[Rfam]
Shown here is a 71-nucleotide RNA sequence from Porphyromonas cangingivalis, a member of the family "tRNA". Lineage of the source: Bacteria > Pseudomonadati > Bacteroidales > Porphyromonadaceae > Porphyromonas.

RNA sequence: GGUUCCUUGGCCGAGUGGUUAGGCACCGGUCUGCAAAACCGUUUACGGCGGUUCGAGUCCGCCAGGAACCU
Numbered sequence: 001g002g003u004u005c006c007u008u009g010g011c012c013g014a015g016u017g018g019u020u021a022g023g024c025a026c027c028g029g030u031c032u033g034c035a036a037a038a039c040c041g042u043u044u045a046c047g048g049c050g051g052u053u054c055g056a057g058u059c060c061g062c063c064a065g066g067a068a069c070c071u
Stems, first nucleotide, its partner, number of pairs: 001070007010024003027041004047063005
It scores 62 bits against the family's covariance model.